[Rfam]
This 77-nucleotide RNA sequence from Crocodylus porosus belongs to the Rfam family "Mammalian CPEB3 ribozyme". It scores 36 bits against the family's covariance model.
RNA sequence: AGUCAUAAAUGUAAGGCCAUAGCAGAAGCGCUUACGGUGCAGCCCUGUCAAAUUCCAAUGAAGCAGCAAAUUCUGUU
Numbered sequence: 001a002g003u004c005a006u007a008a009a010u011g012u013a014a015g016g017c018c019a020u021a022g023c024a025g026a027a028g029c030g031c032u033u034a035c036g037g038u039g040c041a042g043c044c045c046u047g048u049c050a051a052a053u054u055c056c057a058a059u060g061a062a063g064c065a066g067c068a069a070a071u072u073c074u075g076u077u
Stems, first nucleotide, its partner, number of pairs: 015044003021077007028040003049066001053062003
Background
Lineage of the source: Eukaryota > Amniota > Crocodylia > Longirostres > Crocodylus. Rfam's curators write: The mammalian CPEB3 ribozyme is a self cleaving RNA located in the second intron of the CPEB3 gene which belongs to a family of genes regulating messenger RNA polyadenylation.